[Rfam]
RNA sequence: AUGGUGUUGGGGAAGGCUCCUGUGUUGUUGAAACUGCUCAGUUGUGGGUGCAGCCUUGUACCAGGCAGCCCAAUCCUGACCUAAAGUAAAUUCCCAGAAGUCUUUCCUAGGCUGUGAAUUUGCAGUAACAGGCGUGCGCAUCCUAGCAGCAGUUUGAUGAUCAUGUAUGAAACUGCAAACAGGA
Numbered sequence: 001a002u003g004g005u006g007u008u009g010g011g012g013a014a015g016g017c018u019c020c021u022g023u024g025u026u027g028u029u030g031a032a033a034c035u036g037c038u039c040a041g042u043u044g045u046g047g048g049u050g051c052a053g054c055c056u057u058g059u060a061c062c063a064g065g066c067a068g069c070c071c072a073a074u075c076c077u078g079a080c081c082u083a084a085a086g087u088a089a090a091u092u093c094c095c096a097g098a099a100g101u102c103u104u105u106c107c108u109a110g111g112c113u114g115u116g117a118a119u120u121u122g123c124a125g126u127a128a129c130a131g132g133c134g135u136g137c138g139c140a141u142c143c144u145a146g147c148a149g150c151a152g153u154u155u156g157a158u159g160a161u162c163a164u165g166u167a168u169g170a171a172a173c174u175g176c177a178a179a180c181a182g183g184a
Base pairs, nucleotide, nucleotide: 003081004080005079009075010074015070016069017068018067019065020064021063022062024061025060027054028053029052030051032049034047093111094110097106098105099104119179120178121177122176123175124174125173126172129169130168135163136162139159140158141157142156145154146153147152

Shown here is a 184-nucleotide sequence from Callithrix jacchus, a member of the family "Small Cajal body specific RNA 16". The family's RNA type in Rfam is small Cajal body RNA. Lineage of the source: Eukaryota > Bilateria > Vertebrata > Dipnotetrapodomorpha > Callithrix. Pairs were carried over by alignment from the consensus structure, which was predicted with RNAfold. The match comes from Rfam's covariance-model search (178 bits). Its family is annotated with RNA processing and nucleolus in the Gene Ontology. About the family: scaRNAs are a specific class of small nuclear RNAs which localise to the Cajal bodies and guide the modification of RNA polymerase II transcribed spliceosomal RNAs U1, U2, U4, U5 and U12. ACA47 belongs to the H/ACA box class of guide RNAs as it has the predicted hairpin-hinge-hairpin-tail structure, the conserved H/ACA-box motifs and is found associated with GAR1.